The family of this 67-nucleotide RNA from Pueribacillus theae is "Bacillaceae-1 RNA". The family's RNA type in Rfam is small RNA. It scores 75 bits against the family's covariance model. Taxonomically the source falls in Pueribacillus (Bacteria, Bacillota, Caryophanales, Bacillaceae). Rfam 15.1 lists 5,721 matches to the family in 247 species.
[Rfam]
RNA sequence: UGCUAAGGUACGCAAGCUAAGAACGCCGCGUCCUGCGGCAACGCUUGCAUGACCAACGUCGUGUUGG
Numbered sequence: 001u002g003c004u005a006a007g008g009u010a011c012g013c014a015a016g017c018u019a020a021g022a023a024c025g026c027c028g029c030g031u032c033c034u035g036c037g038g039c040a041a042c043g044c045u046u047g048c049a050u051g052a053c054c055a056a057c058g059u060c061g062u063g064u065u066g067g
Stems, first nucleotide, its partner, number of pairs: 012048006025039005053067005